RNA sequence: GUGCAGUGAUGUAUUUGUCAACACAUCAUUCUGAAGGAAAGUGUGGUGACGUCUUAUUACUGAGCACA
Number, nucleotide and partner (000 for none) at each position: 001g067002u066003g065004c064005a000006g000007u000008g000009a000010u000011g000012u000013a000014u000015u000016u000017g000018u000019c000020a000021a000022c000023a000024c000025a000026u000027c000028a000029u000030u000031c000032u000033g000034a000035a000036g000037g000038a000039a000040a000041g000042u000043g000044u000045g000046g000047u000048g000049a000050c000051g000052u000053c000054u000055u000056a000057u000058u000059a000060c000061u000062g000063a000064g004065c003066a002067c001068a000